[Rfam]
RNA sequence: ACUUCGGAAAGGAGGUGGUUCGGCAGAUGUACACAUACCGGACGGAAGAGGUGGCUGCGGGCCAGUAGCCCGUCGUCGUACUCGGUUCGGCGUCGGACCAGCGUGUGUGAUGCACGCGACCGGCCCAAUUCCACGCAGUCACCCGACCCGCGAGUCGCCGGUACGUCCGGCCGGCCCCUCCUUCGGAGGGCCGGACUCGCGGGUCGUUCGUG
Numbered sequence: 001a002c003u004u005c006g007g008a009a010a011g012g013a014g015g016u017g018g019u020u021c022g023g024c025a026g027a028u029g030u031a032c033a034c035a036u037a038c039c040g041g042a043c044g045g046a047a048g049a050g051g052u053g054g055c056u057g058c059g060g061g062c063c064a065g066u067a068g069c070c071c072g073u074c075g076u077c078g079u080a081c082u083c084g085g086u087u088c089g090g091c092g093u094c095g096g097a098c099c100a101g102c103g104u105g106u107g108u109g110a111u112g113c114a115c116g117c118g119a120c121c122g123g124c125c126c127a128a129u130u131c132c133a134c135g136c137a138g139u140c141a142c143c144c145g146a147c148c149c150g151c152g153a154g155u156c157g158c159c160g161g162u163a164c165g166u167c168c169g170g171c172c173g174g175c176c177c178c179u180c181c182u183u184c185g186g187a188g189g190g191c192c193g194g195a196c197u198c199g200c201g202g203g204u205c206g207u208u209c210g211u212g
Base pairs, nucleotide, nucleotide: 015058016057017056018055019054060125061124062123063122065120066119068117069116144206145205146204147203148202149201150200151199152198153197154196155195156194157175158174159173160172161171162170
Rfam assigns this 212-nucleotide RNA from Streptomyces sp. H-KF8 to the family "Actinobacteria sRNA Ms_IGR-5". The literature on the family includes a 2013 paper in RNA by Li et al., "Identification of small RNAs in Mycobacterium smegmatis using heterologous Hfq". The pairing is the family consensus, mapped onto this sequence. Lineage of the source: Bacteria > Bacillati > Actinomycetota > Kitasatosporales > Streptomyces. It scores 85 bits against the family's covariance model. It is annotated as a small RNA.